[Rfam]
RNA: tRNA
Organism: Starkeya nomas
RNA sequence: GGCCACGUGGCGGAGUGGUUACGCAGCGGACUGCAAAUCCGUGCACCCCGGUUCGAUUCCGGGCGUGGCCU
Number, nucleotide and partner (000 for none) at each position: 001g070002g069003c068004c067005a066006c065007g064008u000009g000010g024011c023012g022013g000014a000015g000016u000017g000018g000019u000020u000021a000022c012023g011024c010025a000026g042027c041028g040029g039030a038031c000032u000033g000034c000035a000036a000037a000038u030039c029040c028041g027042u026043g000044c000045a000046c000047c063048c062049c061050g060051g059052u000053u000054c000055g000056a000057u000058u000059c051060c050061g049062g048063g047064c007065g006066u005067g004068g003069c002070c001071u000